[Rfam]
RNA sequence: CUCCCAUCGGGAAGUGAAGACCCCAUGGAGCUUUACUGCAGCCUGUCGUUGACUUACGGUAUUACAUGCGCAGCGUAGAUAGUAGGUGUUAAUGCUCAUAUUCCGGUAUGAGUGGAGCCACAGUUGAGACACUAUCCUUGUUCUGCUGUAAUUCUCACUCAUCUUUCAUGAUGAGGACAUCGGUAGGUAGGCAGUUUGGGUGGGGCGCCACACCCUCGAAAAAAUAUCAAGGGUGCCCUAUGGUCAACUCAUGUGAGUCAGCAACUCACAGGAGAGUGUCAAGAGCAUAAGUUGGCUUGACGUGAUUUCGCAUAGCAAGAAAUCACGAGUGGAAACACGGGUCUAACGAACCAAUACGCCUUUUUGGUGAGGGCUAUUGACUACAGAAAAGCUACCCUGGGGAUAACAGAGUCGUCGCCGGCAAGAGCACAUAUCGACCCGGCGGCUUGCUACCUCGAUGUCGGUUCUUUCCAUCCUGGCUGUGCAGCAGCAGCCAAGGGUGAGGUUGUUCGCCUAUUAAAGGGGAUCGUGAGCUGGGUUCAGACCGUCGUGAGACAGGUCGGUUACUAUCUGAUGGGAGUGUU
Numbered sequence: 001c002u003c004c005c006a007u008c009g010g011g012a013a014g015u016g017a018a019g020a021c022c023c024c025a026u027g028g029a030g031c032u033u034u035a036c037u038g039c040a041g042c043c044u045g046u047c048g049u050u051g052a053c054u055u056a057c058g059g060u061a062u063u064a065c066a067u068g069c070g071c072a073g074c075g076u077a078g079a080u081a082g083u084a085g086g087u088g089u090u091a092a093u094g095c096u097c098a099u100a101u102u103c104c105g106g107u108a109u110g111a112g113u114g115g116a117g118c119c120a121c122a123g124u125u126g127a128g129a130c131a132c133u134a135u136c137c138u139u140g141u142u143c144u145g146c147u148g149u150a151a152u153u154c155u156c157a158c159u160c161a162u163c164u165u166u167c168a169u170g171a172u173g174a175g176g177a178c179a180u181c182g183g184u185a186g187g188u189a190g191g192c193a194g195u196u197u198g199g200g201u202g203g204g205g206c207g208c209c210a211c212a213c214c215c216u217c218g219a220a221a222a223a224a225u226a227u228c229a230a231g232g233g234u235g236c237c238c239u240a241u242g243g244u245c246a247a248c249u250c251a252u253g254u255g256a257g258u259c260a261g262c263a264a265c266u267c268a269c270a271g272g273a274g275a276g277u278g279u280c281a282a283g284a285g286c287a288u289a290a291g292u293u294g295g296c297u298u299g300a301c302g303u304g305a306u307u308u309c310g311c312a313u314a315g316c317a318a319g320a321a322a323u324c325a326c327g328a329g330u331g332g333a334a335a336c337a338c339g340g341g342u343c344u345a346a347c348g349a350a351c352c353a354a355u356a357c358g359c360c361u362u363u364u365u366g367g368u369g370a371g372g373g374c375u376a377u378u379g380a381c382u383a384c385a386g387a388a389a390a391g392c393u394a395c396c397c398u399g400g401g402g403a404u405a406a407c408a409g410a411g412u413c414g415u416c417g418c419c420g421g422c423a424a425g426a427g428c429a430c431a432u433a434u435c436g437a438c439c440c441g442g443c444g445g446c447u448u449g450c451u452a453c454c455u456c457g458a459u460g461u462c463g464g465u466u467c468u469u470u471c472c473a474u475c476c477u478g479g480c481u482g483u484g485c486a487g488c489a490g491c492a493g494c495c496a497a498g499g500g501u502g503a504g505g506u507u508g509u510u511c512g513c514c515u516a517u518u519a520a521a522g523g524g525g526a527u528c529g530u531g532a533g534c535u536g537g538g539u540u541c542a543g544a545c546c547g548u549c550g551u552g553a554g555a556c557a558g559g560u561c562g563g564u565u566a567c568u569a570u571c572u573g574a575u576g577g578g579a580g581u582g583u584u
Base pairs, nucleotide, nucleotide: 001580002579003578004577005576006575007574008573010572011571012570014567015566022401023400024399025398027397028396029393030392031391032390033389035195036194037193038192042187043186044185045184046183047182048181051154052153054151055150056149057148058147059146060145061144064141065140066139068137078136079135080134081133082132085119086118087117097110098109099108100107101106158175159174160173161172162171163170198211199209200208201207212234213233214232215231216230237341238340243296244295245294246293247292248291249275250274252270253269254268255267256266257265276286277285301327302326303325304324305323306322307321308320309319329338331336352379353378354377355376356375358374359373360372361371362370410451411450412449414448415445416444417443418442419441420440421439425435426434462537463535464534465533466532467529468526469525470524471523472522475500476499479494480493481492482491483490503515504514505513506512543561544560545559546558547556548555549554

The family of this 584-nucleotide part of an RNA from Methanocorpusculum labreanum is "Archaeal large subunit ribosomal RNA". It is one of the family's seed sequences. Lineage of the source: Archaea > Methanobacteriati > Methanobacteriota > Methanocorpusculum > Methanocorpusculum labreanum.